The record is a 308-nucleotide sequence from Cocos nucifera, which matches "Plant signal recognition particle RNA" in Rfam. On this family, see Wild et al., Curr Opin Struct Biol 2002: "Towards the structure of the mammalian signal recognition particle". Pairs were carried over by alignment from the consensus structure, which is taken from published work. By type it is a non-coding RNA gene.

Nucleotides: 308
Base pairs, nucleotide, nucleotide: 001040002039003038004023005022006021007020008019009018011016028037029036030035044306045305046304047303048302049301050300051299053298056295057294058292059291060290061288062287063286064285068282069281070280071279074276075275076274077273079267081265082264083263084262085261089259091258092257093256102252104250106248107247108246110241111240114239115238116237117236118235119233120232121231123229124228125227126226127225128224129169130168131167132166133165134164135163136162137161138160139158140157142155143154144153145152146151170175177222178221179220180219181218188213189212190211195206196205197204
Number, partner (000 for none) and nucleotide at each position: 001040g002039c003038c004023g005022a006021g007020u008019c009018c010000g011016u012000u013000a014000g015000c016011g017000a018009g019008g020007g021006c022005u023004u024000g025000u026000a027000a028037c029036c030035u031000u032000a033000g034000c035030g036029g037028g038003g039002g040001c041000a042000u043000c044306g045305g046304g047303u048302g049301g050300u051299u052000a053298g054000a055000a056295c057294g058292u059291u060290g061288g062287g063286u064285a065000c066000c067000g068282c069281u070280c071279g072000c073000a074276g075275a076274u077273c078000c079267g080000a081265g082264u083263a084262c085261a086000g087000a088000u089259g090000c091258g092257u093256g094000c095000g096000c097000c098000u099000c100000g101000c102252u103000g104250g105000c106248u107247c108246g109000c110241c111240c112000g113000u114239u115238u116237c117236a118235a119233g120232u121231u122000g123229g124228a125227u126226a127225g128224c129169g130168a131167g132166a133165c134164g135163u136162g137161u138160a139158g140157c141000c142155c143154a144153g145152g146151c147000g148000a149000a150000a151146g152145c153144c154143u155142g156000a157140g158139u159000u160138u161137a162136c163135g164134c165133g166132u167131c168130u169129c170175c171000u172000g173000a174000a175170g176000c177222g178221g179220a180219g181218g182000g183000a184000a185000c186000u187000g188213c189212g190211a191000u192000a193000g194000g195206c196205u197204g198000g199000u200000u201000u202000c203000a204197c205196a206195g207000a208000g209000c210000g211190u212189c213188g214000a215000u216000c217000a218181c219180c220179u221178c222177c223000c224128g225127c226126u227125a228124u229123c230000a231121a232120a233119u234000g235118u236117u237116g238115a239114a240111g241110g242000a243000c244000c245000a246108c247107g248106a249000a250104c251000a252102g253000c254000c255000g256093u257092a258091c259089c260000a261085u262084g263083u264082a265081c266000c267079c268000c269000a270000u271000a272000c273077g274076a275075u276074u277000c278000a279071c280070g281069g282068g283000c284000a285064u286063a287062c288061c289000g290060c291059a292058a293000a294057c295056g296000a297000a298053c299051a300050a301049c302048c303047a304046u305045c306044u307000u308000u